The family of this 170-nucleotide RNA sequence from Arthrobacter sp. Leaf69 is "c-di-AMP riboswitch aptamer (ydaO/yuaA leader)".

RNA sequence: ACCGCUCAAGGUCCGUUCGCAUUACAUCGUCUGGCAGGGGCGGGGGAACCAAUUUUGGUCUUCGCAAGAAGACCUAGGGGUUAAGUCGCAAAGCUUCCCAGGAAGCAGCGCGGCCGGGUGACUCCCAUCCGAAUCCGACAGCUCACCUCGUAGGCAUUGGGAGAGGCUAC
Number, nucleotide and partner (000 for none) at each position: 001a000002c039003c038004g000005c000006u000007c000008a000009a000010g000011g000012u000013c000014c000015g000016u000017u000018c000019g000020c000021a000022u000023u000024a000025c000026a000027u000028c000029g000030u000031c000032u000033g000034g000035c000036a000037g000038g003039g002040g151041c150042g149043g148044g147045g146046g000047a000048a000049c000050c077051a000052a000053u000054u000055u000056u000057g000058g000059u000060c000061u000062u000063c000064g000065c000066a000067a000068g000069a000070a000071g000072a000073c000074c000075u000076a000077g050078g136079g135080g134081u000082u000083a000084a000085g000086u113087c112088g111089c110090a000091a000092a000093g000094c000095u000096u000097c000098c000099c000100a000101g000102g000103a000104a000105g000106c000107a000108g000109c000110g089111c088112g087113g086114c000115c000116g130117g129118g128119u127120g000121a000122c000123u000124c000125c000126c000127a119128u118129c117130c116131g000132a000133a000134u080135c079136c078137g000138a000139c000140a000141g000142c000143u000144c000145a000146c045147c044148u043149c042150g041151u040152a000153g000154g000155c000156a000157u000158u000159g000160g000161g000162a000163g000164a000165g000166g000167c000168u000169a000170c000